[Rfam]
Rfam assigns this 138-nucleotide RNA sequence from Hymenochirus boettgeri to the family "Wolbachia sRNA 46".
RNA sequence: CAUAUAUGAAGGAAAAAGAUGUCACUCAUGGGUCUUUUGACGAAAACAGCUUUUUAUUGAACAAUCACAAUGUGAUUGUACAAUAAAAGCUGUUUUCGUCAAAAGACCCGUGAGUGACAUCUUUUUCCUUUAUAUAUA
Numbered sequence: 001c002a003u004a005u006a007u008g009a010a011g012g013a014a015a016a017a018g019a020u021g022u023c024a025c026u027c028a029u030g031g032g033u034c035u036u037u038u039g040a041c042g043a044a045a046a047c048a049g050c051u052u053u054u055u056a057u058u059g060a061a062c063a064a065u066c067a068c069a070a071u072g073u074g075a076u077u078g079u080a081c082a083a084u085a086a087a088a089g090c091u092g093u094u095u096u097c098g099u100c101a102a103a104a105g106a107c108c109c110g111u112g113a114g115u116g117a118c119a120u121c122u123u124u125u126u127c128c129u130u131u132a133u134a135u136a137u138a
Stems, first nucleotide, its partner, number of pairs: 011133001013131003020119030
Dot-bracket structure: ..........(.(((....((((((((((((((((((((((((((((((........................................)))))))))))))))))))))))))))))).........))).).....

The family has 3 seed sequences and 237 matches in Rfam 15.1.
It is annotated as a small RNA.